The family of this 109-nucleotide RNA sequence from Triticum aestivum is "Small nucleolar RNA Z118/Z121/Z120". The base pairs follow the family's consensus structure, which was predicted with PFOLD.

RNA sequence: UCUUUGCUGUGAUGAACCACAAGGACGGUAUCUGAGCAAGGCGGCUCUUGAAAAAGGGCCUCCUUGCUUGAUUACACACCCUAAACUGAUCUUAAUUUCUGAGCAAACG
Numbered sequence: 001u002c003u004u005u006g007c008u009g010u011g012a013u014g015a016a017c018c019a020c021a022a023g024g025a026c027g028g029u030a031u032c033u034g035a036g037c038a039a040g041g042c043g044g045c046u047c048u049u050g051a052a053a054a055a056g057g058g059c060c061u062c063c064u065u066g067c068u069u070g071a072u073u074a075c076a077c078a079c080c081c082u083a084a085a086c087u088g089a090u091c092u093u094a095a096u097u098u099c100u101g102a103g104c105a106a107a108c109g
Stems, first nucleotide, its partner, number of pairs: 001109001003107005036067006
Rfam classes the family as a C/D-box small nucleolar RNA. Taxonomically the source falls in Triticum (Eukaryota, Streptophyta, commelinids, Poales). On this family, see Chen et al., Nucleic Acids Res 2003: "The high diversity of snoRNAs in plants: identification and comparative study of 120 snoRNA genes from Oryza sativa".